The record is a 47-nucleotide RNA from Orthohepacivirus hominis, which matches "Hepatitis C virus stem-loop I" in Rfam.
By type it is a cis-regulatory element.
Its family is annotated with viral RNA genome replication in the Gene Ontology.
RNA sequence: CAACAGAGUUGCGGGGGCUCUCAGGAAGCUUGGGAGCCCUCCUCUGC
Numbered sequence: 001c002a003a004c005a006g007a008g009u010u011g012c013g014g015g016g017g018c019u020c021u022c023a024g025g026a027a028g029c030u031u032g033g034g035a036g037c038c039c040u041c042c043u044c045u046g047c
Stems, first nucleotide, its partner, number of pairs: 006042001008040001011038001018036008